About this RNA
A member of the RNA family "ZMP/ZTP riboswitch aptamer (pfl RNA motif)" from Agrococcus casei, 80 nucleotides long. NCBI's taxonomy places the organism under Bacteria, Actinomycetes, Micrococcales, Microbacteriaceae, Agrococcus casei. Gene Ontology terms of the family: regulation of purine nucleotide biosynthetic process and one-carbon metabolic process. A search with the family's covariance model found it, with a score of 54 bits.
[Rfam]
RNA sequence: GGAGGCAGCCGCAACUGGCGCAUAGGUGGUCACCACCGGGGAGCGGCGCUCUGUCACGGUCGCGCGCCUGGGCCGAACCU
Numbered sequence: 001g002g003a004g005g006c007a008g009c010c011g012c013a014a015c016u017g018g019c020g021c022a023u024a025g026g027u028g029g030u031c032a033c034c035a036c037c038g039g040g041g042a043g044c045g046g047c048g049c050u051c052u053g054u055c056a057c058g059g060u061c062g063c064g065c066g067c068c069u070g071g072g073c074c075g076a077a078c079c080u
Base pairs, nucleotide, nucleotide: 003052004051005050008047009046010045011044012043015040016039017068018067019066020065021064026036027035028034029033057075058074059073060072061071